Record summary: Putative RNA-dependent RNA polymerase ribosomal frameshift site: a 40-nucleotide RNA sequence from Polerovirus APVA. The family's RNA type in Rfam is frameshift element. A search with the family's covariance model found it, with a score of 40 bits. The literature on the family includes a 2002 paper in Arch Virol by Hauser et al., "Biological properties and molecular characterization of beet chlorosis virus (BChV)". Pairs were carried over by alignment from the consensus structure, which is taken from published work. Taxonomically the source falls in Polerovirus APVA (Viruses, Riboviria, Pisoniviricetes, Solemoviridae).
RNA sequence: GGGAAACGAGGAACGCGGCGCCGACCGCGCAACAACCGGA
Numbered sequence: 001g002g003g004a005a006a007c008g009a010g011g012a013a014c015g016c017g018g019c020g021c022c023g024a025c026c027g028c029g030c031a032a033c034a035a036c037c038g039g040a
Stems, first nucleotide, its partner, number of pairs: 014029005021039003